[Rfam]
RNA: Group II catalytic intron D1-D4-1
RNA sequence: CAACCCUUGUCGGAAGGCAAGACUACACUGGCAGAAGUCAGCAGACGUCAUAGUACGAUGCAAAGCAUCGGAAAGGC
Numbered sequence: 001c002a003a004c005c006c007u008u009g010u011c012g013g014a015a016g017g018c019a020a021g022a023c024u025a026c027a028c029u030g031g032c033a034g035a036a037g038u039c040a041g042c043a044g045a046c047g048u049c050a051u052a053g054u055a056c057g058a059u060g061c062a063a064a065g066c067a068u069c070g071g072a073a074a075g076g077c
Stems, first nucleotide, its partner, number of pairs: 002024001006021006037046003047077003056070006